[Rfam]
Nucleotides: 346
Stems, first nucleotide, its partner, number of pairs: 001342010011331001012301007020035001022033004040329003044326005049202004056236004061198005066080005081096001083094004097193002101191005117134002119130004142160006162184001163182008206258004217248005228240004266283007
Number, partner (000 for none) and nucleotide at each position: 001342a002341c003340a004339g005338c006337a007336g008335g009334a010333c011331a012301g013300u014299c015298u016297g017296u018295c019000g020035c021000u022033c023032a024031u025030g026000g027000a028000a029000a030025c031024a032023u033022g034000u035020g036000a037000g038000g039000a040329a041328a042327g043000u044326c045325c046324g047323g048322g049202c050201a051200a052199c053000a054000u055000a056236g057235a058234g059233c060000a061198c062197c063196a064195u065194a066080u067079u068078u069077c070076c071000u072000a073000a074000c075000g076070g077069g078068a079067a080066g081096c082000u083094a084093u085092u086091c087000g088000u089000g090000a091086g092085a093084g094083u095000a096081g097193a098192g099000u100000a101191a102190c103189g104188u105187a106000a107000c108000a109000g110000a111000a112000a113000a114000u115000a116000a117134c118133c119130g120129c121128u122127g123000c124000u125000u126000g127122c128121a129120g130119c131000a132000a133118g134117g135000g136000u137000g138000a139000a140000a141000a142160g143159g144158u145157g146156a147155g148000g149000c150000a151000a152000g153000a154000g155147c156146u157145c158144a159143c160142c161000g162184g163182u164181u165180u166179u167178c168177g169176u170175g171000g172000u173000g174000a175170c176169a177168c178167g179166a180165a181164a182163a183000g184162c185000c186000g187105u188104a189103c190102g191101u192098c193097u194065u195064a196063u197062g198061g199052g200051u201050u202049g203000u204000a205000a206258g207257g208256u209255u210000a211000u212000g213000u214000a215000u216000a217248c218247c219246g220245a221244c222000g223000c224000a225000g226000u227000a228240g229239g230238g231237c232000u233059g234058c235057u236056c237231g238230u239229c240228c241000a242000a243000u244221g245220u246219c247218g248217g249000g250000g251000g252000g253000u254000a255209a256208a257207c258206c259000g260000c261000u262000a263000a264000a265000g266283c267282u268281u269280u270279a271278u272277g273000g274000c275000g276000a277272c278271a279270u280269a281268a282267a283266g284000a285000u286000a287000a288000g289000a290000u291000a292000a293000a294000u295018g296017a297016c298015a299014g300013a301012c302000g303000c304000c305000u306000u307000u308000u309000u310000u311000a312000a313000g314000g315000u316000a317000c318000a319000g320000a321000a322048c323047c324046c325045g326044g327042c328041u329040u330000a331011u332000c333010g334009u335008u336007c337006u338005g339004c340003u341002g342001u343000a344000u345000u346000u